[Rfam]
RNA sequence: AAAAAGGCAAAUCUUAGAUUUCUGUGUCCAACUUUAACUGUCCGUCUUAUAUAAAUUUUUUUUAUAAUUCGUAUUUUCGUUGUUGUUAGAUGAUAAAACAUGAUUAAUAUUUUAUGCGUGACUUGUCUUUUUAAUUUUUUUUCAUAAUUUUUUUAAAUAAGACGGACGGUCAAAUAUUGGGCACGGAAAUCAGGGUUUGUCUUUUU
Numbered sequence: 001a002a003a004a005a006g007g008c009a010a011a012u013c014u015u016a017g018a019u020u021u022c023u024g025u026g027u028c029c030a031a032c033u034u035u036a037a038c039u040g041u042c043c044g045u046c047u048u049a050u051a052u053a054a055a056u057u058u059u060u061u062u063u064a065u066a067a068u069u070c071g072u073a074u075u076u077u078c079g080u081u082g083u084u085g086u087u088a089g090a091u092g093a094u095a096a097a098a099c100a101u102g103a104u105u106a107a108u109a110u111u112u113u114a115u116g117c118g119u120g121a122c123u124u125g126u127c128u129u130u131u132u133a134a135u136u137u138u139u140u141u142u143c144a145u146a147a148u149u150u151u152u153u154u155a156a157a158u159a160a161g162a163c164g165g166a167c168g169g170u171c172a173a174a175u176a177u178u179g180g181g182c183a184c185g186g187a188a189a190u191c192a193g194g195g196u197u198u199g200u201c202u203u204u205u206u
Stems, first nucleotide, its partner, number of pairs: 027181005033174003037170014
The family of this 206-nucleotide RNA sequence from Oryza glumipatula is "MIR812 microRNA precursor family".
The match comes from Rfam's covariance-model search (131 bits).
The family's consensus secondary structure was predicted with RNAalifold.